RNA sequence: GCUAAGGCGAAGGCAUCCACCGUGAAGGCGAGGCUCCUCUCCGUAGAAGAAGCUUGCCGCUUAACACCCCCCCACUCCGCCAGAUCUAAAUUUGGCUAUGGGGCGAAGGAUGUCCGGGACCUA
Numbered sequence: 001g002c003u004a005a006g007g008c009g010a011a012g013g014c015a016u017c018c019a020c021c022g023u024g025a026a027g028g029c030g031a032g033g034c035u036c037c038u039c040u041c042c043g044u045a046g047a048a049g050a051a052g053c054u055u056g057c058c059g060c061u062u063a064a065c066a067c068c069c070c071c072c073c074a075c076u077c078c079g080c081c082a083g084a085u086c087u088a089a090a091u092u093u094g095g096c097u098a099u100g101g102g103g104c105g106a107a108g109g110a111u112g113u114c115c116g117g118g119a120c121c122u123a
Base pairs, nucleotide, nucleotide: 006120008118012114013113014112015111016110017109018108022065023064025062028057029056032053035050036049038047039046068103069102070101071100074097076095077094079091
This 123-nucleotide sequence from Orthohepacivirus hominis belongs to the Rfam family "Hepatitis C virus J7880 RNA". Lineage of the source: Viruses > Kitrinoviricota > Flasuviricetes > Hepaciviridae > Orthohepacivirus. On this family, see Mauger et al., Proc Natl Acad Sci U S A 2015: "Functionally conserved architecture of hepatitis C virus RNA genomes". It is one of the family's seed sequences.